[Rfam]
RNA sequence: AAGAUCAUACUUUUAGGGAUCAUUUCUAUAGUAUGUAUCGCCGGGACGUCAGAUAACUCUGACUGGACCUAAACCCACGAUGAAGAGAAAUAGCGUUUUCUUCUGAGCGUGAAGCUGACCGAGACUGUCUCUAGCUUGGUGAGACACGGUCUUCGGUCAUUGAUGACCGUUCCUCUCCCUCUUAAGUGGGGAGUUGGAGGAAGGAAACGCAUUCUGAGUGGU
Number, nucleotide and partner (000 for none) at each position: 001a000002a000003g039004a038005u037006c035007a034008u033009a032010c031011u030012u000013u000014u028015a027016g026017g025018g024019a000020u000021c000022a000023u000024u018025u017026c016027u015028a014029u000030a011031g010032u009033a008034u007035g006036u000037a005038u004039c003040g000041c000042c000043g000044g000045g000046a000047c000048g063049u062050c061051a060052g059053a000054u000055a000056a000057c000058u000059c052060u051061g050062a049063c048064u000065g000066g000067a000068c000069c000070u000071a000072a000073a000074c000075c221076c220077a219078c218079g000080a000081u000082g000083a000084a000085g000086a000087g000088a000089a000090a000091u000092a000093g210094c209095g208096u207097u206098u205099u204100c203101u202102u201103c200104u199105g000106a000107g170108c169109g168110u000111g000112a000113a000114g000115c000116u000117g158118a157119c156120c155121g000122a152123g151124a150125c149126u000127g145128u144129c143130u142131c141132u000133a000134g000135c000136u000137u000138g000139g000140u000141g131142a130143g129144a128145c127146a000147c000148g000149g125150u124151c123152u122153u000154c000155g120156g119157u118158c117159a000160u000161u000162g000163a000164u000165g000166a000167c000168c109169g108170u107171u000172c000173c196174u000175c193176u192177c191178c190179c189180u188181c000182u000183u000184a000185a000186g000187u000188g180189g179190g178191g177192a176193g175194u000195u000196g173197g000198a000199g104200g103201a102202a101203g100204g099205a098206a097207a096208c095209g094210c093211a000212u000213u000214c000215u000216g000217a000218g078219u077220g076221g075222u000
The record is a 222-nucleotide RNA from Mytilus edulis, which matches "Small nucleolar RNA U3" in Rfam.
Rfam classes the family as a C/D-box small nucleolar RNA.
A reference for the family is Marz and Stadler (2010), "Comparative analysis of eukaryotic U3 snoRNA", RNA Biol.
The family's consensus secondary structure is taken from published work.
The family is grouped with related families in Rfam's "U3 clan".
About the family: Small nucleolar RNAs (snoRNAs) are involved in the processing and modification of rRNA in the nucleolus.
Gene Ontology terms of the family: RNA processing and nucleolus.